About this RNA
A member of the RNA family "6A RNA", 53 nucleotides long. The family's consensus secondary structure is taken from published work.
RNA sequence: AGAUCUGUUCAUAGGGUAGUGAACAGGGUAAUAAAAAGAAAUACCUGUUGAGA
Dot-bracket structure: .....((((((..[[[[..)))))).................]]]].......